RNA: Exoribonuclease-resistant RNA (xrRNA) plant-infecting virus (class 3)
RNA sequence: CAAGUCAGCCAGGCAAAUUCGAGUUGCAAGCACUGGAUGACCUAGUCUCGAUA
Numbered sequence: 001c002a003a004g005u006c007a008g009c010c011a012g013g014c015a016a017a018u019u020c021g022a023g024u025u026g027c028a029a030g031c032a033c034u035g036g037a038u039g040a041c042c043u044a045g046u047c048u049c050g051a052u053a
Stems, first nucleotide, its partner, number of pairs: 005039001009036002012034001013031002019051005